[Rfam]
Record summary:
A member of the RNA family "small nucleolar RNA snoR143" from Coffea arabica, 178 nucleotides long.
RNA sequence: UUGCACUCAUAAUUAUCGUGGGCUUUGCUGAAUUUGAAAUAGUAAGGCUUUUGAUCCAAGAGUGCAUAAAGGAAAUGCUGAGUUAACUCGGCGGCGGCCAGACAACCGCUGAGAUGGAUCCACAGAUGAAUGCCCCCUUUUCCAUACGGCAUUUAUCUACUAAAUCCAUCUUACAUUA
Numbered sequence: 001u002u003g004c005a006c007u008c009a010u011a012a013u014u015a016u017c018g019u020g021g022g023c024u025u026u027g028c029u030g031a032a033u034u035u036g037a038a039a040u041a042g043u044a045a046g047g048c049u050u051u052u053g054a055u056c057c058a059a060g061a062g063u064g065c066a067u068a069a070a071g072g073a074a075a076u077g078c079u080g081a082g083u084u085a086a087c088u089c090g091g092c093g094g095c096g097g098c099c100a101g102a103c104a105a106c107c108g109c110u111g112a113g114a115u116g117g118a119u120c121c122a123c124a125g126a127u128g129a130a131u132g133c134c135c136c137c138u139u140u141u142c143c144a145u146a147c148g149g150c151a152u153u154u155a156u157c158u159a160c161u162a163a164a165u166c167c168a169u170c171u172u173a174c175a176u177u178a
Base pairs, nucleotide, nucleotide: 002066003065004064005063006062016054017053018052020050021049022048023047024046025045026044027043028042029041030040111172112171113170114169115168116167117166118165128154129153130152131151132150133149134148

A search with the family's covariance model found it, with a score of 105 bits.
Pairs were carried over by alignment from the consensus structure, which was predicted with RNAalifold.
The source organism's lineage runs through Eukaryota, Streptophyta, Pentapetalae, Coffeeae and Coffea.
The literature on the family includes a 2009 paper in Nucleic Acids Res by Chen and Wu, "Mining small RNA sequencing data: a new approach to identify small nucleolar RNAs in Arabidopsis".